[Rfam]
RNA sequence: AAACAGCCCCCUAUGUAUUGGAUCUUUAGCAGUUUUGGCCCCCAAUGCCACUUUUGACUUGGUCUUCGUUGACGUGACACCCACAUCCCUUAAGUGAGGUGCCACGUAUCGACCAUUGUGGGUGCCACUUCAACGAAGACUAAGUCAAAAGUGCUCUUAGGGGCCAAAAUUGCCAAAAAUCCAAAACAUAGGGGGCUGUUU
Numbered sequence: 001a002a003a004c005a006g007c008c009c010c011c012u013a014u015g016u017a018u019u020g021g022a023u024c025u026u027u028a029g030c031a032g033u034u035u036u037g038g039c040c041c042c043c044a045a046u047g048c049c050a051c052u053u054u055u056g057a058c059u060u061g062g063u064c065u066u067c068g069u070u071g072a073c074g075u076g077a078c079a080c081c082c083a084c085a086u087c088c089c090u091u092a093a094g095u096g097a098g099g100u101g102c103c104a105c106g107u108a109u110c111g112a113c114c115a116u117u118g119u120g121g122g123u124g125c126c127a128c129u130u131c132a133a134c135g136a137a138g139a140c141u142a143a144g145u146c147a148a149a150a151g152u153g154c155u156c157u158u159a160g161g162g163g164c165c166a167a168a169a170u171u172g173c174c175a176a177a178a179a180u181c182c183a184a185a186a187c188a189u190a191g192g193g194g195g196c197u198g199u200u201u
Stems, first nucleotide, its partner, number of pairs: 001201002004198005012190005018184006025177003029173014044158002072130001075127002078124008
RNA: MIR2619 microRNA precursor family
Organism: Medicago truncatula